RNA: msiK RNA
RNA sequence: GACGCAUCCACUUCACGACGGAUCGUCCGGCACGUACCUGCCGGUGAAGGGAAGUACCU
Numbered sequence: 001g002a003c004g005c006a007u008c009c010a011c012u013u014c015a016c017g018a019c020g021g022a023u024c025g026u027c028c029g030g031c032a033c034g035u036a037c038c039u040g041c042c043g044g045u046g047a048a049g050g051g052a053a054g055u056a057c058c059u
Stems, first nucleotide, its partner, number of pairs: 009051001011049005027044006
Dot-bracket structure: ........(.(((((...........((((((......))))))))))).)........